RNA sequence: GUUCUUACAAUGUUCAGUUUAGUGUCAGUUAACUUUAACCGGACAUUGUGAGAACGG
Numbered sequence: 001g002u003u004c005u006u007a008c009a010a011u012g013u014u015c016a017g018u019u020u021a022g023u024g025u026c027a028g029u030u031a032a033c034u035u036u037a038a039c040c041g042g043a044c045a046u047u048g049u050g051a052g053a054a055c056g057g
Stems, first nucleotide, its partner, number of pairs: 001055011013043003017039003021035002024033002
This 57-nucleotide RNA sequence from Acyrthosiphon pisum belongs to the Rfam family "mir-3015 microRNA precursor family". Rfam links the family to the GO terms RISC complex and miRNA-mediated post-transcriptional gene silencing. NCBI's taxonomy places the organism under Eukaryota, Pancrustacea, Insecta, Hemiptera, Acyrthosiphon.